[Rfam]
RNA sequence: AACCCCCAACCAGGCUGGGAGUUUCGGACAGCUUUCAGCUUUGAGCCAGUUAUUAAAACCCCUUUUGAUUUGUUAAAACACCUUACGGUCUGGCAACUGCAAGAGUAAAACAAGAAAUCAAAAA
Numbered sequence: 001a002a003c004c005c006c007c008a009a010c011c012a013g014g015c016u017g018g019g020a021g022u023u024u025c026g027g028a029c030a031g032c033u034u035u036c037a038g039c040u041u042u043g044a045g046c047c048a049g050u051u052a053u054u055a056a057a058a059c060c061c062c063u064u065u066u067g068a069u070u071u072g073u074u075a076a077a078a079c080a081c082c083u084u085a086c087g088g089u090c091u092g093g094c095a096a097c098u099g100c101a102a103g104a105g106u107a108a109a110a111c112a113a114g115a116a117a118u119c120a121a122a123a124a
Stems, first nucleotide, its partner, number of pairs: 001023003005019004010014001028042001030040004063123008071112004078106002082103003086099004
STnc490 Hfq binding RNA: a 124-nucleotide RNA sequence from Enterobacteriaceae bacterium strain FGI 57. Rfam 15.1 lists 285 matches to the family in 122 species. The base pairs follow the family's consensus structure, which was predicted with WAR. The match comes from Rfam's covariance-model search (114 bits).